The record is a 72-nucleotide RNA sequence from Rhinopithecus bieti, which matches "mir-3689 microRNA precursor family" in Rfam. The family's consensus secondary structure was predicted with RNAalifold. The match comes from Rfam's covariance-model search (58 bits).
RNA sequence: GGGGGGUGUGCUCCCGCACUCACUGGGGGGUGUGACCCCACGCUCCCUGGGGGCUGUGACUCCGCACUCCCU
Numbered sequence: 001g002g003g004g005g006g007u008g009u010g011c012u013c014c015c016g017c018a019c020u021c022a023c024u025g026g027g028g029g030g031u032g033u034g035a036c037c038c039c040a041c042g043c044u045c046c047c048u049g050g051g052g053g054c055u056g057u058g059a060c061u062c063c064g065c066a067c068u069c070c071c072u
Base pairs, nucleotide, nucleotide: 001071002070003069004068005067015058016057017056018055020053021052023050024049025048026047027046028045029044031042032041033040034039
Dot-bracket structure: (((((.........((((.((.(((((((.((((....)))).))))))).)).))))........))))).